A member of the RNA family "Lysine riboswitch aptamer" from Zhenpiania hominis, 177 nucleotides long. Riboswitches are metabolite binding domains within certain messenger RNAs that serve as precision sensors for their corresponding targets. Lineage of the source: Bacteria > Bacillati > Peptostreptococcales > Anaerovoracaceae > Zhenpiania.

RNA sequence: AAAGUUGAUAGAGGUGCGGUUGAUAAUAGUACCCGGAGCGAGGCGGCGGCCGAUGAUACCGGGGAAAGGAGAUACCGCCGAAGGAUCUUUCCGGGCACGGAGGGUUUCUGGGAUAUGGCAUAACAUGUUAUAUACUCCUGCCCGUUACAGAUACGGAGCAGAGGCGCUAUCGGUUCA
Numbered sequence: 001a002a003a004g005u006u007g008a009u010a011g012a013g014g015u016g017c018g019g020u021u022g023a024u025a026a027u028a029g030u031a032c033c034c035g036g037a038g039c040g041a042g043g044c045g046g047c048g049g050c051c052g053a054u055g056a057u058a059c060c061g062g063g064g065a066a067a068g069g070a071g072a073u074a075c076c077g078c079c080g081a082a083g084g085a086u087c088u089u090u091c092c093g094g095g096c097a098c099g100g101a102g103g104g105u106u107u108c109u110g111g112g113a114u115a116u117g118g119c120a121u122a123a124c125a126u127g128u129u130a131u132a133u134a135c136u137c138c139u140g141c142c143c144g145u146u147a148c149a150g151a152u153a154c155g156g157a158g159c160a161g162a163g164g165c166g167c168u169a170u171c172g173g174u175u176c177a
Base pairs, nucleotide, nucleotide: 006172007171008170009169010168011167016078017077018076019075020074024070032063033062034061035060036059038057082109083108084107085106087104088103089102090101091100092099093098110136111135113133114132115131116130117129118128119127120126138161139160140159141158143156